[Rfam]
RNA: mir-3492 microRNA precursor family
RNA sequence: AGCCCCCUGUGUCCGUGCUGAGAUUUCGUCACAGAUAAACCCGUUGGGGCUGAUGGUACUUCCCAAAUAAGUGAAGCG
Numbered sequence: 001a002g003c004c005c006c007c008u009g010u011g012u013c014c015g016u017g018c019u020g021a022g023a024u025u026u027c028g029u030c031a032c033a034g035a036u037a038a039a040c041c042c043g044u045u046g047g048g049g050c051u052g053a054u055g056g057u058a059c060u061u062c063c064c065a066a067a068u069a070a071g072u073g074a075a076g077c078g
Stems, first nucleotide, its partner, number of pairs: 002077002006073001008071001010069003017062001020061003024058001026056005